The record is an 86-nucleotide RNA sequence from Medicago truncatula, which matches "MIR2617 microRNA precursor family" in Rfam.
RNA sequence: AAGUAGUGUGACAUGCCCGUUUGGUGAUAUACUCUGAUGUUAUAUUUAUUAUUUAAUUACUUUGGGAUAACGGGAUGUUACAAACC
Number, nucleotide and partner (000 for none) at each position: 001a000002a000003g086004u000005a000006g000007u082008g081009u080010g079011a078012c077013a076014u075015g000016c074017c073018c072019g071020u070021u069022u000023g000024g000025u000026g000027a000028u000029a000030u000031a000032c000033u000034c000035u000036g000037a000038u000039g000040u000041u000042a000043u000044a000045u000046u000047u000048a000049u000050u000051a000052u000053u000054u000055a000056a000057u000058u000059a000060c000061u000062u000063u000064g000065g000066g000067a000068u000069a021070a020071c019072g018073g017074g016075a014076u013077g012078u011079u010080a009081c008082a007083a000084a000085c000086c003
The match comes from Rfam's covariance-model search (66 bits).
Its family is annotated with miRNA-mediated post-transcriptional gene silencing and RISC complex in the Gene Ontology.
The family's consensus secondary structure was predicted with RNAalifold.